[Rfam]
RNA: Small nucleolar RNA R44/J54/Z268 family
RNA sequence: AAAACAAAUGAUGAUAACAAGACAGGGACAUCAGAACCCUGAAUUUCAGGGUUAUGACAGACUAAGUCUAUAAUGGGAAUCUCUCUGAUGUUUU
Numbered sequence: 001a002a003a004a005c006a007a008a009u010g011a012u013g014a015u016a017a018c019a020a021g022a023c024a025g026g027g028a029c030a031u032c033a034g035a036a037c038c039c040u041g042a043a044u045u046u047c048a049g050g051g052u053u054a055u056g057a058c059a060g061a062c063u064a065a066g067u068c069u070a071u072a073a074u075g076g077g078a079a080u081c082u083c084u085c086u087g088a089u090g091u092u093u094u
Base pairs, nucleotide, nucleotide: 002093003092004091005090006089